[Rfam]
RNA sequence: AUCACGAAAGGGCAAACUUGCCGAAAGGCAAGGACGCAAAACUAAAGGGCCUUCCGAAUCAGAACGGGUGGCAGCCAGUAAGCCGUA
Numbered sequence: 001a002u003c004a005c006g007a008a009a010g011g012g013c014a015a016a017c018u019u020g021c022c023g024a025a026a027g028g029c030a031a032g033g034a035c036g037c038a039a040a041a042c043u044a045a046a047g048g049g050c051c052u053u054c055c056g057a058a059u060c061a062g063a064a065c066g067g068g069u070g071g072c073a074g075c076c077a078g079u080a081a082g083c084c085g086u087a
Base pairs, nucleotide, nucleotide: 012037013036017032018031019030020029021028022027041079042078043077047076048075049072050071051070054067055066